[Rfam]
RNA sequence: CACCUGGCUAUCUGUAAGUGGCUCUGGAUAAGAGCGUCUGCUAAAUGACUAAAA
Numbered sequence: 001c002a003c004c005u006g007g008c009u010a011u012c013u014g015u016a017a018g019u020g021g022c023u024c025u026g027g028a029u030a031a032g033a034g035c036g037u038c039u040g041c042u043a044a045a046u047g048a049c050u051a052a053a054a
Stems, first nucleotide, its partner, number of pairs: 013043001014041003021035005